[Rfam]
This 159-nucleotide RNA sequence from Ruminococcaceae bacterium BL-6 belongs to the Rfam family "DUF2800 RNA". Rfam classes the family as a cis-regulatory element. The source organism's lineage runs through Bacteria, Bacillati, Bacillota, Eubacteriales and Oscillospiraceae.

RNA sequence: CUGCCGUAUAUUGCAUCGAUUGAUCAGCGAUGGCUCACUUUAUCCGACAGCCAACUGAAUAAUUUCACAGCUUGCCUUUGAGCGGGAGAGCUGCAAUCUGAAACGGAGAUAUCCGUAAGGACUGCGGUCGGGUUUCCAUGCCUAUCUCCCGGUUAGCUC
Numbered sequence: 001c002u003g004c005c006g007u008a009u010a011u012u013g014c015a016u017c018g019a020u021u022g023a024u025c026a027g028c029g030a031u032g033g034c035u036c037a038c039u040u041u042a043u044c045c046g047a048c049a050g051c052c053a054a055c056u057g058a059a060u061a062a063u064u065u066c067a068c069a070g071c072u073u074g075c076c077u078u079u080g081a082g083c084g085g086g087a088g089a090g091c092u093g094c095a096a097u098c099u100g101a102a103a104c105g106g107a108g109a110u111a112u113c114c115g116u117a118a119g120g121a122c123u124g125c126g127g128u129c130g131g132g133u134u135u136c137c138a139u140g141c142c143u144a145u146c147u148c149c150c151g152g153u154u155a156g157c158u159c
Base pairs, nucleotide, nucleotide: 001050002049003048005046008043009042010041013038014032015031016030017029018028033083034082035081036080037079069154070153071152072151074149090128091127092126093125094124103116104115105114106113107112